[Rfam]
This 82-nucleotide RNA from Vanilla planifolia belongs to the Rfam family "Small nucleolar RNA U54". Rfam 15.1 lists 614 matches to the family in 206 species. Gene Ontology terms of the family: RNA processing and nucleolus.

RNA sequence: AGCUCAGUGAGUGUAUAAAAACCAAUUGGUACCAUACACUAUUCUGACGUUAAGGUGUUGGGCUUUAAACUCCACGAGAGCU
Numbered sequence: 001a002g003c004u005c006a007g008u009g010a011g012u013g014u015a016u017a018a019a020a021a022c023c024a025a026u027u028g029g030u031a032c033c034a035u036a037c038a039c040u041a042u043u044c045u046g047a048c049g050u051u052a053a054g055g056u057g058u059u060g061g062g063c064u065u066u067a068a069a070c071u072c073c074a075c076g077a078g079a080g081c082u
Stems, first nucleotide, its partner, number of pairs: 001082005
U54 is a C/D box small nucleolar RNA, which acts as a methylation guide for 18S ribosomal RNA in plants. On this family, see Chen et al., Nucleic Acids Res 2003: "The high diversity of snoRNAs in plants: identification and comparative study of 120 snoRNA genes from Oryza sativa".